Shown here is a 63-nucleotide sequence from Tetranychus urticae, a member of the family "Selenocysteine insertion sequence 1". Pairs were carried over by alignment from the consensus structure, which is taken from published work. By type it is a cis-regulatory element. Rfam's curators write: The incorporation of selenocysteine into a protein sequence is directed by an in-frame UGA codon (usually a stop codon) within the coding region of the mRNA. Selenoprotein mRNAs contain a conserved secondary structure in the 3' UTR that is required for the distinction of UGA stop from UGA selenocysteine. The selenocysteine insertion sequence (SECIS) is around 60 nt in length and adopts a hairpin structure which is sufficiently well-defined and conserved to act as a computational screen for selenoprotein genes.
RNA sequence: GGUUCUUUAUGAUGACUGGUGUGUAAAGCCUCUAUGGAAGCGCACUAGUUUGAUGCUCGAUUU
Numbered sequence: 001g002g003u004u005c006u007u008u009a010u011g012a013u014g015a016c017u018g019g020u021g022u023g024u025a026a027a028g029c030c031u032c033u034a035u036g037g038a039a040g041c042g043c044a045c046u047a048g049u050u051u052g053a054u055g056c057u058c059g060a061u062u063u
Base pairs, nucleotide, nucleotide: 001063002062004060005059014050015049016048017047018046019045020044021043022042023041029036
A search with the family's covariance model found it, with a score of 37 bits.
Rfam links the family to the GO term selenocysteine incorporation.
The family has 61 seed sequences and 3,793 matches in Rfam 15.1.